[Rfam]
RNA: Archaeal small subunit ribosomal RNA, nucleotides 1 to 529
Organism: uncultured marine crenarchaeote AD1000-23-H12
RNA sequence: ACUCCGGUUGAUCCUGCCGGACCCGACUGCUAUCGGAUUAGGACUAAGCCAUGCGAGUUGAACGCUCUUUGACUAUGUUAAGAGCGUGGCAAACUGCUCAGUAACACGUUGCCAACCUACCCUAAAGAUAUGAAUAACCCCGGGAAACUGGGAUUAAUGCGUUAUAAGUCAGGAAUCCUGGAAUGGAUCUUGACUAAAAGAAUUGAAGAGCAUGUUCAUCGGUUCGCUCUAGGAUGGGGCCGCGUCCGAUCAGGUUGUUGGUGGGGUAAAGGCCCACCAAGCCUAUAACCGGUACGGGCUUUGAGAGAAGUAGCCCGGAGAUGGACCCUGAGACACAGGUCCAGGCCCUACGGGGCGCAGCAGGCGCGAAAACUUCGCAAUGCGCGCAAGCGUGACGAGGCUAAUCCGAGUGUUACCUGCUGAAGGUAACUUUUGUUAAGUUUAAUUCGCUUAAAGAAAAAAGGGAGGGCAAGCCUGGUGUCAGCCGCCGCGGUAAUACCAGCUCCCUGAGUGGUCGGGGUGUUUAUUG
Dot-bracket structure: ...(((((.......))))).((((((((((.((((((((((.....(((.(((..(((..(((((((............))))))))))......(((......((((.(((..((...((((.((..(((....(.(((((....))))).).....))).....(((((((..((......)).))))))).....(((((((............))))))).)).))))..))))).))))(((....(((..((((((((.......)))))))))))......)))..((((((((....))))...))))))).((((((..........)))))).((((....))))...)))))).).....(.(((...(((((....))))).)))).)))))))))..(((((((.....)))))))...(.((((((.......))))))....)..((((((.......((((.....((....)).......)))))))))).))))))))))..........